Rfam assigns this 109-nucleotide RNA from Enterobacter sp. 638 to the family "ArcZ RNA". This RNA was discovered in E. coli during a large scale screen. Gene Ontology terms of the family: protein binding and regulation of translation. The source organism's lineage runs through Bacteria, Pseudomonadota, Gammaproteobacteria, Enterobacterales and Enterobacter. By type it is a small RNA.
[Rfam]
RNA sequence: GUGCGGCCUCAUUCUUAAGGCAGCGUCCAUGCGAAAACAACACAAAGAAUCAGGCGCGGCCACGAUUUCCCUGGUGUUGGCGCAGUAUUUCGCGCACCCCGGUUUAUCC
Numbered sequence: 001g002u003g004c005g006g007c008c009u010c011a012u013u014c015u016u017a018a019g020g021c022a023g024c025g026u027c028c029a030u031g032c033g034a035a036a037a038c039a040a041c042a043c044a045a046a047g048a049a050u051c052a053g054g055c056g057c058g059g060c061c062a063c064g065a066u067u068u069c070c071c072u073g074g075u076g077u078u079g080g081c082g083c084a085g086u087a088u089u090u091c092g093c094g095c096a097c098c099c100c101g102g103u104u105u106a107u108c109c
Base pairs, nucleotide, nucleotide: 020060021059023057024056025055026054027053073098074097075096080095081094082093083092